[Rfam]
RNA sequence: UCCGAUGCCAAGGGGUGCCUGAAUAGGGCUGAGAGUCCGAACAUGUGACAACCCUUUGAACCUGAUCCGGGUUAUUCCGGCGUAGGGAUGGACGUAAUUUCCCCC
Numbered sequence: 001u002c003c004g005a006u007g008c009c010a011a012g013g014g015g016u017g018c019c020u021g022a023a024u025a026g027g028g029c030u031g032a033g034a035g036u037c038c039g040a041a042c043a044u045g046u047g048a049c050a051a052c053c054c055u056u057u058g059a060a061c062c063u064g065a066u067c068c069g070g071g072u073u074a075u076u077c078c079g080g081c082g083u084a085g086g087g088a089u090g091g092a093c094g095u096a097a098u099u100u101c102c103c104c105c
Base pairs, nucleotide, nucleotide: 008091009090010089011055012054013053014052017029018028019027020026036048037047040044061086062085063084064083067080068079069078070077
TPP riboswitch aptamer (THI element): a 105-nucleotide RNA sequence from Terasakiella brassicae. Pairs were carried over by alignment from the consensus structure, which is taken from published work.